[Rfam]
RNA sequence: CAAUGCAAUAGAGGUUGCGGUAAUUACGAAACUAAUCUGAGUGAACGAACACAAUGAAGAUUAGUGUAAGAGUUAUCGCCGAAACAAAAGUGCUAUUCGCUUUAACACUUUUGUUGGGCUGCAGGAGAAGAUCUUGCAGACUGUCCUAGUUAAUACUGGGGAGCGCUAUAUGAUUU
Numbered sequence: 001c002a003a004u005g006c007a008a009u010a011g012a013g014g015u016u017g018c019g020g021u022a023a024u025u026a027c028g029a030a031a032c033u034a035a036u037c038u039g040a041g042u043g044a045a046c047g048a049a050c051a052c053a054a055u056g057a058a059g060a061u062u063a064g065u066g067u068a069a070g071a072g073u074u075a076u077c078g079c080c081g082a083a084a085c086a087a088a089a090g091u092g093c094u095a096u097u098c099g100c101u102u103u104a105a106c107a108c109u110u111u112u113g114u115u116g117g118g119c120u121g122c123a124g125g126a127g128a129a130g131a132u133c134u135u136g137c138a139g140a141c142u143g144u145c146c147u148a149g150u151u152a153a154u155a156c157u158g159g160g161g162a163g164c165g166c167u168a169u170a171u172g173a174u175u176u
Stems, first nucleotide, its partner, number of pairs: 008169004017079009031065008083115010094104001116142002119139008144161007
Dot-bracket structure: .......((((.....(((((((((.....((((((((...................)))))))).....)))))))))...((((((((((.(.........).))))))))))((.((((((((.....)))))))).)).(((((((....)))))))....)))).......